[Rfam]
RNA sequence: AGCCUCAGUCUGUGAAAGUGGGCACAGCUGAUCACGGUGUCCAGACAAGCAGUUGUGGCUGAAAGGAUGACAGGUUUUGCUUCCACCACUGUGGGUUAAUUUCAGUGGUGACAAUGAGACCUGUAACACUU
Numbered sequence: 001a002g003c004c005u006c007a008g009u010c011u012g013u014g015a016a017a018g019u020g021g022g023c024a025c026a027g028c029u030g031a032u033c034a035c036g037g038u039g040u041c042c043a044g045a046c047a048a049g050c051a052g053u054u055g056u057g058g059c060u061g062a063a064a065g066g067a068u069g070a071c072a073g074g075u076u077u078u079g080c081u082u083c084c085a086c087c088a089c090u091g092u093g094g095g096u097u098a099a100u101u102u103c104a105g106u107g108g109u110g111a112c113a114a115u116g117a118g119a120c121c122u123g124u125a126a127c128a129c130u131u
Base pairs, nucleotide, nucleotide: 002059003058004057006055007054008053019043020042021041022040023039024038025037070124071123072122073121074120084110085109086108087107088106089105